[Rfam]
RNA: sok antitoxin (CssrC)
RNA sequence: GGGUGCUUGAGACUGUUUGUCUCAGGUAUCACCGAAAGGCAGACAGAGAAAAGCCCCACCUGACUAUAAAUCAAAGUGAGGCCCCUCUAUGCAUGAACACCAUAAAGGUAGCCUCUUGUUUGUUGGAAAUCAACACCGGAGGCUGGGAAUG
Numbered sequence: 001g002g003g004u005g006c007u008u009g010a011g012a013c014u015g016u017u018u019g020u021c022u023c024a025g026g027u028a029u030c031a032c033c034g035a036a037a038g039g040c041a042g043a044c045a046g047a048g049a050a051a052a053g054c055c056c057c058a059c060c061u062g063a064c065u066a067u068a069a070a071u072c073a074a075a076g077u078g079a080g081g082c083c084c085c086u087c088u089a090u091g092c093a094u095g096a097a098c099a100c101c102a103u104a105a106a107g108g109u110a111g112c113c114u115c116u117u118g119u120u121u122g123u124u125g126g127a128a129a130u131c132a133a134c135a136c137c138g139g140a141g142g143c144u145g146g147g148a149a150u151g
Stems, first nucleotide, its partner, number of pairs: 001057003005054004013046010026033001058077002061074001062072002065069001078115005084108003088104004119142003123138001